RNA sequence: UUGCGCAUCAAAGUGGUUGUGAUGUGGUGUCAUUUCAUACGCAUAUCACAGCCAGCUUUGAUGUGUGGGA
Numbered sequence: 001u002u003g004c005g006c007a008u009c010a011a012a013g014u015g016g017u018u019g020u021g022a023u024g025u026g027g028u029g030u031c032a033u034u035u036c037a038u039a040c041g042c043a044u045a046u047c048a049c050a051g052c053c054a055g056c057u058u059u060g061a062u063g064u065g066u067g068g069g070a
Stems, first nucleotide, its partner, number of pairs: 005064009014054009025045002
Notes:
mir-2 microRNA precursor family: a 70-nucleotide sequence from Trichogramma brassicae. Pairs were carried over by alignment from the consensus structure, which was predicted with PFOLD. Its family is annotated with RISC complex and miRNA-mediated post-transcriptional gene silencing in the Gene Ontology.